Purine riboswitch aptamer: a 102-nucleotide sequence from Neomoorella thermoacetica. About the family: Riboswitches are metabolite binding domains within certain messenger RNAs that serve as precision sensors for their corresponding targets.
[Rfam]
RNA sequence: CAAUAAAGCCAGUCUUAACUUCGUAUAUCCCCGGCAAUAGGGACCGGGGGUUUCUACCAGGCAACCGCAAAUUGCCCGGCUACGAAGGUAUAUCUUCGUUGC
Dot-bracket structure: ..................(((((((...((((((.........))))))........(.(((((.......))))).)..)))))))...............
Gene Ontology term of the family: purine nucleobase biosynthetic process. It is one of the family's seed sequences. Taxonomically the source falls in Neomoorella thermoacetica (Bacteria, Bacillota, Neomoorellaceae, Neomoorella).